[Rfam]
RNA sequence: UCUUCAUUUCGCCUGCUCUCUCACCGGUCAGAGGGGCGAGAGAGUGCGUAAAAUGAGGAGA
Numbered sequence: 001u002c003u004u005c006a007u008u009u010c011g012c013c014u015g016c017u018c019u020c021u022c023a024c025c026g027g028u029c030a031g032a033g034g035g036g037c038g039a040g041a042g043a044g045u046g047c048g049u050a051a052a053a054u055g056a057g058g059a060g061a
Stems, first nucleotide, its partner, number of pairs: 001059007012048001014046004019041004
Dot-bracket structure: (((((((....(.((((.((((...............)))).)))).)....)))))))..

Annotation
This 61-nucleotide RNA sequence from Pristionchus pacificus belongs to the Rfam family "mir-8364 microRNA precursor family". A search with the family's covariance model found it, with a score of 74 bits. Gene Ontology terms of the family: miRNA-mediated post-transcriptional gene silencing and RISC complex.